[Rfam]
RNA: SAM-III riboswitch aptamer (SMK box)
Organism: Tetragenococcus muriaticus
RNA sequence: GGCCGUUGCAAGUUCCCGAGAGGAUUCACUUGUGUGUUAUAAGUGGAGAUGCCUUGUAACCGAAAAAUAUUUUUUAGGGGGAAUUAUUAUCAUG
Numbered sequence: 001g002g003c004c005g006u007u008g009c010a011a012g013u014u015c016c017c018g019a020g021a022g023g024a025u026u027c028a029c030u031u032g033u034g035u036g037u038u039a040u041a042a043g044u045g046g047a048g049a050u051g052c053c054u055u056g057u058a059a060c061c062g063a064a065a066a067a068u069a070u071u072u073u074u075u076a077g078g079g080g081g082a083a084u085u086a087u088u089a090u091c092a093u094g
Base pairs, nucleotide, nucleotide: 013083014082015081016080017079020055021054022053023052025047026046027045028044029043030042031041032040060078061077